[Rfam]
RNA sequence: GGCGGUGCGACAAAGUAACCGCGCGGCGGCGAAAUCCAUACCUUUGCAGAAGGAGAGCUUAUUCCCGGCCAACAGGCCAAAACAAUCCGCCGAUGCGGCCAGCCGGACGCUGCUUGCAUGGCGGGGGUAUGUGCAGCGCCCCCGUUUACCCUCAAGGGGUACGAGGCAUCCGUAGGCGGCAUAGCCGCUGACGGCUGCCCUGUCAUGGCUGGUGCCGCCAAGCAGAUAGAACGCGCACCCGACAAAUCCUUCUGUACGGCGGAUGCCCCCAACGGGGCGGAAGG
Numbered sequence: 001g002g003c004g005g006u007g008c009g010a011c012a013a014a015g016u017a018a019c020c021g022c023g024c025g026g027c028g029g030c031g032a033a034a035u036c037c038a039u040a041c042c043u044u045u046g047c048a049g050a051a052g053g054a055g056a057g058c059u060u061a062u063u064c065c066c067g068g069c070c071a072a073c074a075g076g077c078c079a080a081a082a083c084a085a086u087c088c089g090c091c092g093a094u095g096c097g098g099c100c101a102g103c104c105g106g107a108c109g110c111u112g113c114u115u116g117c118a119u120g121g122c123g124g125g126g127g128u129a130u131g132u133g134c135a136g137c138g139c140c141c142c143c144g145u146u147u148a149c150c151c152u153c154a155a156g157g158g159g160u161a162c163g164a165g166g167c168a169u170c171c172g173u174a175g176g177c178g179g180c181a182u183a184g185c186c187g188c189u190g191a192c193g194g195c196u197g198c199c200c201u202g203u204c205a206u207g208g209c210u211g212g213u214g215c216c217g218c219c220a221a222g223c224a225g226a227u228a229g230a231a232c233g234c235g236c237a238c239c240c241g242a243c244a245a246a247u248c249c250u251u252c253u254g255u256a257c258g259g260c261g262g263a264u265g266c267c268c269c270c271a272a273c274g275g276g277g278c279g280g281a282a283g284g
Base pairs, nucleotide, nucleotide: 004042005041006040007039019029020028067078068077069076070075085264086263087262088261089260090259091258092257094256095218096217097216098215099214100211101210102209103208104207109117110116120146121145122144123143124142125141126140222255223254224253225252226251229240